The record is a 92-nucleotide RNA sequence from Cucurbita maxima, which matches "Small nucleolar RNA snoR27" in Rfam. Rfam 15.1 lists 649 matches to the family in 212 species.
RNA sequence: UCUAGAUCGAUGAUGCGAUUACAAAUCUGCGUUAUCUAUCUGCAAUUUCCUGCUAGGAAUUGAAGAUAAACGGAUAAUCUCUGAGAUCUGUU
Numbered sequence: 001u002c003u004a005g006a007u008c009g010a011u012g013a014u015g016c017g018a019u020u021a022c023a024a025a026u027c028u029g030c031g032u033u034a035u036c037u038a039u040c041u042g043c044a045a046u047u048u049c050c051u052g053c054u055a056g057g058a059a060u061u062g063a064a065g066a067u068a069a070a071c072g073g074a075u076a077a078u079c080u081c082u083g084a085g086a087u088c089u090g091u092u
Base pairs, nucleotide, nucleotide: 003090004089005088006087007086
The organism belongs to Cucurbita, within Eukaryota.
The literature on the family includes a 2001 paper in RNA by Brown et al., "Multiple snoRNA gene clusters from Arabidopsis".
Clan: snR68 clan.
It is annotated as a C/D-box small nucleolar RNA.